RNA sequence: GCUGAAGUAGCAAAAGUGGUUAUGCAAAAGACUUAGGAUCUUUUAACGAGGGUUCAACUCCUUCUUUCAGCU
Number, nucleotide and partner (000 for none) at each position: 001g071002c070003u069004g068005a067006a066007g065008u000009a000010g025011c024012a023013a000014a000015a000016g000017u000018g000019g000020u000021u000022a000023u012024g011025c010026a000027a043028a042029a041030g040031a039032c000033u000034u000035a000036g000037g000038a000039u031040c030041u029042u028043u027044u000045a000046a000047c000048g064049a063050g062051g061052g060053u000054u000055c000056a000057a000058c000059u000060c052061c051062u050063u049064c048065u007066u006067u005068c004069a003070g002071c001072u000
The record is a 72-nucleotide RNA sequence from Strongylocentrotus purpuratus, which matches "tRNA" in Rfam. By type it is a transfer RNA. Lineage of the source: Eukaryota > Eleutherozoa > Echinozoa > Echinidea > Strongylocentrotus. The base pairs follow the family's consensus structure, which is taken from published work. It is one of the family's seed sequences.